[Rfam]
RNA: Vibrio regulatory RNA of OmpA
RNA sequence: GUAGUCGGCAGAGCAUUGAGAGUUUAGAGGCCGUCAAUUUUUGAAUUCCCAACGUGACUACUUGUUUAUUUGCGCUGCUUUUUUCUUUAUUAACUCCUAUGUUUGUAUACGCCCGAACCUUUUAUUCGGGCUUUUUUUU
Numbered sequence: 001g002u003a004g005u006c007g008g009c010a011g012a013g014c015a016u017u018g019a020g021a022g023u024u025u026a027g028a029g030g031c032c033g034u035c036a037a038u039u040u041u042u043g044a045a046u047u048c049c050c051a052a053c054g055u056g057a058c059u060a061c062u063u064g065u066u067u068a069u070u071u072g073c074g075c076u077g078c079u080u081u082u083u084u085c086u087u088u089a090u091u092a093a094c095u096c097c098u099a100u101g102u103u104u105g106u107a108u109a110c111g112c113c114c115g116a117a118c119c120u121u122u123u124a125u126u127c128g129g130g131c132u133u134u135u136u137u138u139u
Base pairs, nucleotide, nucleotide: 001073002072003071004070005068006064007062008061010059011058016052017051018050020048021047030046031043033041109133111131112130113129114128115127116126117125